RNA sequence: UCACCGGUUCUUCUAAGAACCACACCUCUUCCAAAAAGAGAUUGUUU
Dot-bracket structure: .....((((((....))))))..........................